[Rfam]
RNA sequence: AGGUUUCAUUUGAAGGAAGGAUGUCUACCCAAUACAAACUUCCUAAAGUAAAAUUUCCAUUUCCUGUUCGUGGUGUUGUUGGUAUGUUCGUUGAGCCUCUAAUGACUAGAACCACA
Numbered sequence: 001a002g003g004u005u006u007c008a009u010u011u012g013a014a015g016g017a018a019g020g021a022u023g024u025c026u027a028c029c030c031a032a033u034a035c036a037a038a039c040u041u042c043c044u045a046a047a048g049u050a051a052a053a054u055u056u057c058c059a060u061u062u063c064c065u066g067u068u069c070g071u072g073g074u075g076u077u078g079u080u081g082g083u084a085u086g087u088u089c090g091u092u093g094a095g096c097c098u099c100u101a102a103u104g105a106c107u108a109g110a111a112c113c114a115c116a
Stems, first nucleotide, its partner, number of pairs: 002029002007023005055110002066096005073089001075087002
Rfam assigns this 116-nucleotide RNA from Oryza brachyantha to the family "Small nucleolar RNA snoR104". Lineage of the source: Eukaryota > Viridiplantae > Spermatophyta > Oryzeae > Oryza. The literature on the family includes a 2002 paper in Curr Biol by Marker et al., "Experimental RNomics: identification of 140 candidates for small non-messenger RNAs in the plant Arabidopsis thaliana". The family's RNA type in Rfam is H/ACA-box small nucleolar RNA.